[Rfam]
RNA sequence: UUGGGUGAUAUGAAUGUAGGACCAACAUUUUGAAAAUGGAACCCACAUAAAGUGGUAGGACAUACAUUAAUUUUACCCAA
Numbered sequence: 001u002u003g004g005g006u007g008a009u010a011u012g013a014a015u016g017u018a019g020g021a022c023c024a025a026c027a028u029u030u031u032g033a034a035a036a037u038g039g040a041a042c043c044c045a046c047a048u049a050a051a052g053u054g055g056u057a058g059g060a061c062a063u064a065c066a067u068u069a070a071u072u073u074u075a076c077c078c079a080a
Stems, first nucleotide, its partner, number of pairs: 001080008010071002013068006023058001025056001026054007
RNA: MIR5269 microRNA precursor family
Organism: Medicago truncatula